A member of the RNA family "MIR408 microRNA precursor family" from Ipomoea nil, 125 nucleotides long. For this family Rfam cites "High throughput approaches reveal splicing of primary microRNA transcripts and tissue specific expression of mature microRNAs in Vitis vinifera" (Mica et al., BMC Genomics, 2009). The match comes from Rfam's covariance-model search (70 bits). The base pairs follow the family's consensus structure, which was predicted with WAR.
RNA sequence: AGGCGUGGUGGAGAGGGUAGACGGGGACGAGGCGGAGCAUGAGAUGGGCACUUCAACUUUCGGGGUUAAGUUGUUGUCCUUUCCAUGCACUGCCUCUUCCCUGGCUCUCCUUUCCUCCAUUAUUU
Numbered sequence: 001a002g003g004c005g006u007g008g009u010g011g012a013g014a015g016g017g018u019a020g021a022c023g024g025g026g027a028c029g030a031g032g033c034g035g036a037g038c039a040u041g042a043g044a045u046g047g048g049c050a051c052u053u054c055a056a057c058u059u060u061c062g063g064g065g066u067u068a069a070g071u072u073g074u075u076g077u078c079c080u081u082u083c084c085a086u087g088c089a090c091u092g093c094c095u096c097u098u099c100c101c102u103g104g105c106u107c108u109c110c111u112u113u114c115c116u117c118c119a120u121u122a123u124u125u
Base pairs, nucleotide, nucleotide: 017107019106020105022103023102024101025100026099027098030095031094032093033092034091035090037088038087039086040085041084043083047079048078
Its family is annotated with miRNA-mediated post-transcriptional gene silencing and RISC complex in the Gene Ontology.